A member of the RNA family "DUF805b RNA" from Penaeus vannamei, 40 nucleotides long. The family's RNA type in Rfam is cis-regulatory element. The family's consensus secondary structure is taken from published work.
RNA sequence: AGGGUGGAAUCCGAAAAACCGAUUUUAAACAGAGUAGGAA
Numbered sequence: 001a002g003g004g005u006g007g008a009a010u011c012c013g014a015a016a017a018a019c020c021g022a023u024u025u026u027a028a029a030c031a032g033a034g035u036a037g038g039a040a
Stems, first nucleotide, its partner, number of pairs: 003020003010039003